[Rfam]
RNA sequence: AUUAAUAAAAUAGCGCCUGAUCUGUGAAAACAGAUGACGAGGAAAGGGUUUAUCGAAAUUUUCGGCGGAUGGCCCUAGGGACUGCACUCUACAGAAUAGCAAAAAAACGAUCUGUGAAGAUCGAACAAGAACCUAUUCACGCAAUUGG
Numbered sequence: 001a002u003u004a005a006u007a008a009a010a011u012a013g014c015g016c017c018u019g020a021u022c023u024g025u026g027a028a029a030a031c032a033g034a035u036g037a038c039g040a041g042g043a044a045a046g047g048g049u050u051u052a053u054c055g056a057a058a059u060u061u062u063c064g065g066c067g068g069a070u071g072g073c074c075c076u077a078g079g080g081a082c083u084g085c086a087c088u089c090u091a092c093a094g095a096a097u098a099g100c101a102a103a104a105a106a107a108c109g110a111u112c113u114g115u116g117a118a119g120a121u122c123g124a125a126c127a128a129g130a131a132c133c134u135a136u137u138c139a140c141g142c143a144a145u146u147g148g
Base pairs, nucleotide, nucleotide: 020035021034022033023032024031025030045076046075047074048073049072053065054064055063056062077090078089079088080087094138095137096136097135098134099133108123109122110121111120112119113118
A member of the RNA family "glmS glucosamine-6-phosphate activated ribozyme aptamer" from Enterococcus ratti, 148 nucleotides long. Rfam's curators write: This entry contains a glucosamine-6-phosphate activated ribozyme that is found in the mRNA for GlmS. GlmS is an enzyme that uses fructose-6-phosphate and glutamine to generate glucosamine-6-phosphate. Its family is annotated with catalytic activity and regulation of gene expression in the Gene Ontology. The family's consensus secondary structure is taken from published work. On this family, see Hampel and Tinsley, Biochemistry 2006: "Evidence for preorganization of the glmS ribozyme ligand binding pocket".